RNA sequence: UACUUUUGCACCCGUCUUACAAUAGCUGUAUGACAUACAUAAAAAUCAUUUAAAUAAUAUUAGCAUG
Numbered sequence: 001u002a003c004u005u006u007u008g009c010a011c012c013c014g015u016c017u018u019a020c021a022a023u024a025g026c027u028g029u030a031u032g033a034c035a036u037a038c039a040u041a042a043a044a045a046u047c048a049u050u051u052a053a054a055u056a057a058u059a060u061u062a063g064c065a066u067g
Base pairs, nucleotide, nucleotide: 014034015033016032018030019029
Dot-bracket structure: .............(((.((.........)).))).................................